[Rfam]
RNA: Guanidine-I riboswitch aptamer
Organism: Neobacillus mesonae
RNA sequence: UAAAAAGUUUUCUAGGGUUCCGUGACUUUGAGAAGUCAGUCUGGUCCGAGAGAAAACGCACACUGUGGAAUAGUGUGUACACGGAGGGAUAAAAGCCUGGGAGAU
Dot-bracket structure: ......((((((..((...(((((((((....))))))..).)).))....))))))((((((((.....)))))))).(.[...(((.......))).)..]..